RNA sequence: UAACUCUGGUUCCUCUGCAUUUGACCGUGAAAAUCUUUCGCCUUUUACUAAAGAUUUCCGUGCAAAGGAGCAAAUACUGAGUAUUACUAUCAAUUUUUGGAGCCUCCUCGAAAGAGCGAGGC
Numbered sequence: 001u002a003a004c005u006c007u008g009g010u011u012c013c014u015c016u017g018c019a020u021u022u023g024a025c026c027g028u029g030a031a032a033a034u035c036u037u038u039c040g041c042c043u044u045u046u047a048c049u050a051a052a053g054a055u056u057u058c059c060g061u062g063c064a065a066a067g068g069a070g071c072a073a074a075u076a077c078u079g080a081g082u083a084u085u086a087c088u089a090u091c092a093a094u095u096u097u098u099g100g101a102g103c104c105u106c107c108u109c110g111a112a113a114g115a116g117c118g119a120g121g122c
Stems, first nucleotide, its partner, number of pairs: 003082004009071006016064004031057008102122005

A member of the RNA family "U5 spliceosomal RNA" from Caenorhabditis briggsae, 122 nucleotides long. By type it is a spliceosomal small nuclear RNA. The family has 180 seed sequences and 28,527 matches in Rfam 15.1. The source organism's lineage runs through Eukaryota, Opisthokonta, Chromadorea, Rhabditida and Caenorhabditis. Rfam describes the family as follows. U5 RNA is a component of both types of known spliceosome. Pairs were carried over by alignment from the consensus structure, which is taken from published work.